[Rfam]
Shown here is a 109-nucleotide RNA from Dioscorea zingiberensis, a member of the family "Small nucleolar RNA Z103". The literature on the family includes a 2003 paper in Nucleic Acids Res by Chen et al., "The high diversity of snoRNAs in plants: identification and comparative study of 120 snoRNA genes from Oryza sativa". The match comes from Rfam's covariance-model search (78 bits). By type it is a C/D-box small nucleolar RNA. Its family is annotated with RNA processing and nucleolus in the Gene Ontology.
RNA sequence: UUGGGUGUGAUGAGCCUUUCCCCACAUGAUCGACUAUGAUUAUAGUGUGCUUUUAGAUUUCUAAUUUCUCUUCUUUGGAAGAGAAAUCAAGCCAGAUACUCUGAUCCAU
Numbered sequence: 001u002u003g004g005g006u007g008u009g010a011u012g013a014g015c016c017u018u019u020c021c022c023c024a025c026a027u028g029a030u031c032g033a034c035u036a037u038g039a040u041u042a043u044a045g046u047g048u049g050c051u052u053u054u055a056g057a058u059u060u061c062u063a064a065u066u067u068c069u070c071u072u073c074u075u076u077g078g079a080a081g082a083g084a085a086a087u088c089a090a091g092c093c094a095g096a097u098a099c100u101c102u103g104a105u106c107c108a109u
Stems, first nucleotide, its partner, number of pairs: 002108004
Dot-bracket structure: .((((...................................................................................................)))).